[Rfam]
RNA sequence: UGGGGUUGAUCCUCCUUCCUUAACUCAUGCCGCUGUGCCUUUCUAUUUAUUUCACAAUGGUGUGAGUUGAGCAGAGAGUGUCAACCCA
Dot-bracket structure: ...(((((((.((.....((((((((((.....((((...............)))).....)))))))))).....)).)))))))..
The family of this 88-nucleotide sequence from Jacana jacana is "mir-1426 microRNA precursor family". A search with the family's covariance model found it, with a score of 80 bits. Gene Ontology terms of the family: miRNA-mediated post-transcriptional gene silencing and RISC complex. Rfam 15.1 lists 326 matches to the family in 324 species.